[Rfam]
RNA sequence: ACGUUUUUUUCAUAGAGAUUUAGAUUUAAGGUUAGAAGAAUUGUGGAAGUCGUGAGACUUCCCUUUUUUUUGCCUUAAGCCUCCUCUUUCUUUCAUAGAUUGAAGGGGGCUCAAAAAGUCCUUUCGUGAGAAAGGGCUUUUUU
Numbered sequence: 001a002c003g004u005u006u007u008u009u010u011c012a013u014a015g016a017g018a019u020u021u022a023g024a025u026u027u028a029a030g031g032u033u034a035g036a037a038g039a040a041u042u043g044u045g046g047a048a049g050u051c052g053u054g055a056g057a058c059u060u061c062c063c064u065u066u067u068u069u070u071u072g073c074c075u076u077a078a079g080c081c082u083c084c085u086c087u088u089u090c091u092u093u094c095a096u097a098g099a100u101u102g103a104a105g106g107g108g109g110c111u112c113a114a115a116a117a118g119u120c121c122u123u124u125c126g127u128g129a130g131a132a133a134g135g136g137c138u139u140u141u142u143u
Base pairs, nucleotide, nucleotide: 025079026078027077028076029075030074031073032072035071036070037069038068039067040066045062046061047060048059049058050057051056080105088103089102113142114141115140116139117138118137119136120135121134122133123132124131125130

A member of the RNA family "Bacteroides sRNA BTnc231" from Bacteroides graminisolvens, 143 nucleotides long. It scores 130 bits against the family's covariance model.